[Rfam]
RNA sequence: AUUUCUUUUAAUAUAUCAAGAAGUCGAAUUGGCAGUGAAAAAAGAAGUAAGAAGUUGAAAUCCAUCAUUGCCUAUAACCAAAACCCAUAAACCCAUAUCAUGCUUUUUUAUUCAUUGUCAAUUCGACUUUUUGAUAUGUUAAAAGAAAU
Numbered sequence: 001a002u003u004u005c006u007u008u009u010a011a012u013a014u015a016u017c018a019a020g021a022a023g024u025c026g027a028a029u030u031g032g033c034a035g036u037g038a039a040a041a042a043a044g045a046a047g048u049a050a051g052a053a054g055u056u057g058a059a060a061u062c063c064a065u066c067a068u069u070g071c072c073u074a075u076a077a078c079c080a081a082a083a084c085c086c087a088u089a090a091a092c093c094c095a096u097a098u099c100a101u102g103c104u105u106u107u108u109u110a111u112u113c114a115u116u117g118u119c120a121a122u123u124c125g126a127c128u129u130u131u132u133g134a135u136a137u138g139u140u141a142a143a144a145g146a147a148a149u
Stems, first nucleotide, its partner, number of pairs: 004146015020130012033117007041109006048102002051099001056095002
Rfam assigns this 149-nucleotide sequence from Gossypium anomalum to the family "MIR8643 microRNA precursor family". The family's consensus secondary structure was predicted with RNAalifold.